This 105-nucleotide RNA sequence belongs to the Rfam family "c-di-GMP-II-GAG riboswitch aptamer". The base pairs follow the family's consensus structure, which is taken from published work. The literature on the family includes a 2017 paper in Proc Natl Acad Sci U S A by Weinberg et al., "Bioinformatic analysis of riboswitch structures uncovers variant classes with altered ligand specificity". Its Rfam clan is "c-di-GMP_II riboswitch clan".
[Rfam]
RNA sequence: GGGACACGCGGAGGCAGUGACACCCAGGGGACGCUCGGUCGCCCAGCGAUGAAACAGCGUCGCACCCCUUGGGAAGAGCCAGUGGCGAGACCGGCCGUUCGCAUC
Numbered sequence: 001g002g003g004a005c006a007c008g009c010g011g012a013g014g015c016a017g018u019g020a021c022a023c024c025c026a027g028g029g030g031a032c033g034c035u036c037g038g039u040c041g042c043c044c045a046g047c048g049a050u051g052a053a054a055c056a057g058c059g060u061c062g063c064a065c066c067c068c069u070u071g072g073g074a075a076g077a078g079c080c081a082g083u084g085g086c087g088a089g090a091c092c093g094g095c096c097g098u099u100c101g102c103a104u105c
Stems, first nucleotide, its partner, number of pairs: 001105002005101001008098004013080003023073007037092002039088005